[Rfam]
RNA sequence: GGAACGGGAGGCCCCCUUUGGGACGGGGGCCGGGAAUUGUCCAGAUCUUGACCCUCUCGUAUGGGCGCAGUGCCGAGGACCCGACGGCACUUGUG
Numbered sequence: 001g002g003a004a005c006g007g008g009a010g011g012c013c014c015c016c017u018u019u020g021g022g023a024c025g026g027g028g029g030c031c032g033g034g035a036a037u038u039g040u041c042c043a044g045a046u047c048u049u050g051a052c053c054c055u056c057u058c059g060u061a062u063g064g065g066c067g068c069a070g071u072g073c074c075g076a077g078g079a080c081c082c083g084a085c086g087g088c089a090c091u092u093g094u095g
Stems, first nucleotide, its partner, number of pairs: 002042001004040002010031007066095005071089005
The family of this 95-nucleotide sequence from Shimia marina is "Rhodo-rpoB RNA". The source organism's lineage runs through Bacteria, Pseudomonadati, Pseudomonadota, Roseobacteraceae and Shimia.